[Rfam]
RNA sequence: GGCCAGGAGGAAAGAGAAAAUAUAGGCUGAAACAUCUAGUAUGGGCAAGCAGGGAGCUGGAAAGAUUCGCACUUGACCCUGGCC
Numbered sequence: 001g002g003c004c005a006g007g008a009g010g011a012a013a014g015a016g017a018a019a020a021u022a023u024a025g026g027c028u029g030a031a032a033c034a035u036c037u038a039g040u041a042u043g044g045g046c047a048a049g050c051a052g053g054g055a056g057c058u059g060g061a062a063a064g065a066u067u068c069g070c071a072c073u074u075g076a077c078c079c080u081g082g083c084c
Stems, first nucleotide, its partner, number of pairs: 001084007
Overview: A member of the RNA family "HIV gag stem loop 3 (GSL3)" from Lentivirus humimdef1, 84 nucleotides long. Rfam describes the family as follows. This family consists of several HIV gag stem loop 3 (GSL3) sequences. GSL3 is known to direct specific packaging of HIV-1 genomic RNA. Deletion of GSL3 leads to decreases in both viral RNA packaging and dimerisation.